Rfam assigns this 119-nucleotide RNA sequence from Dysphania ambrosioides to the family "Plastid-psbA-1 3UTR RNA". Rfam classes the family as a cis-regulatory element. Taxonomically the source falls in Dysphania (Eukaryota, Embryophyta, Mesangiospermae, Chenopodioideae).

[Rfam]
RNA sequence: UCGAAGCUCCAUCUAUAAAUGGAUAAAAUUUCGUUUUUAUUUUAGUGUAUAGAAGUUAUUGAAAGUAAAGGGGCAGUGCCGGUUUCUUGUUCUGUCAAGAAAUAGGUUAUUGCUCCUUU
Dot-bracket structure: .......(((((......)))))...........................................((((((((((((.(.(.(((((........))))).).)..))))))))))))
Numbered sequence: 001u002c003g004a005a006g007c008u009c010c011a012u013c014u015a016u017a018a019a020u021g022g023a024u025a026a027a028a029u030u031u032c033g034u035u036u037u038u039a040u041u042u043u044a045g046u047g048u049a050u051a052g053a054a055g056u057u058a059u060u061g062a063a064a065g066u067a068a069a070g071g072g073g074c075a076g077u078g079c080c081g082g083u084u085u086c087u088u089g090u091u092c093u094g095u096c097a098a099g100a101a102a103u104a105g106g107u108u109a110u111u112g113c114u115c116c117u118u119u
Stems, first nucleotide, its partner, number of pairs: 008023005067119012080105001082103001084101005